[Rfam]
Rfam assigns this 76-nucleotide sequence from Leptolyngbya ectocarpi to the family "Group II catalytic intron D1-D4-1". It scores 66 bits against the family's covariance model. A reference for the family is Bonen and Vogel (2001), "The ins and outs of group II introns", Trends Genet. The base pairs follow the family's consensus structure.
Nucleotides: 076
Stems, first nucleotide, its partner, number of pairs: 001025001004023008038045002047076003056069005
Number, partner (000 for none) and nucleotide at each position: 001025c002000a003000c004023g005022a006021u007020u008019g009018g010017c011016g012000g013000u014000a015000a016011c017010g018009u019008c020007a021006g022005u023004c024000g025001g026000g027000u028000u029000g030000g031000g032000c033000a034000g035000a036000a037000g038045u039044c040000a041000g042000c043000c044039g045038a046000g047076g048075c049074c050000a051000u052000a053000g054000u055000a056069g057068c058067u059066g060065u061000a062000a063000u064000a065060a066059c067058a068057g069056c070000g071000a072000a073000g074049g075048g076047c